[Rfam]
RNA sequence: AUAGUUUGGACUAGUACGUAUUUGCUUCCGACGCACGAUAUUUCUAUGGCACGCAGGAAGCAAGUCCGGAUGUCUCAACCCCCGUCGAGACGUCCGGAGCCGUUGAAGCGGACAUCCAUGCGGCUUAAAGCCGGCCCCGAGUGGAUGUCCGCUGAUUUUUUU
Dot-bracket structure: (.....)...............(((((((..((..(.((......)))...))..)))))))..((((((.(((((..........))))).))))))....(...(((((((((((((.(((((.......))))..).))))))))))))).).......
RNA: Burkholderia sRNA 35